[Rfam]
RNA: Guanidine-I riboswitch aptamer
RNA sequence: UCAAAUGUUUUAUAGGGUUCCGCAGUUUUAGUACAACUGGUCUGGUCCAAGAUAAAACACACAGCUUGUGCUGUGACCACGGAGGGAUAAAAGCCUGGGAGAU
Numbered sequence: 001u002c003a004a005a006u007g008u009u010u011u012a013u014a015g016g017g018u019u020c021c022g023c024a025g026u027u028u029u030a031g032u033a034c035a036a037c038u039g040g041u042c043u044g045g046u047c048c049a050a051g052a053u054a055a056a057a058c059a060c061a062c063a064g065c066u067u068g069u070g071c072u073g074u075g076a077c078c079a080c081g082g083a084g085g086g087a088u089a090a091a092a093g094c095c096u097g098g099g100a101g102a103u
Stems, first nucleotide, its partner, number of pairs: 007058006015048002020045002022042001023039005060075006078098001080101001084096003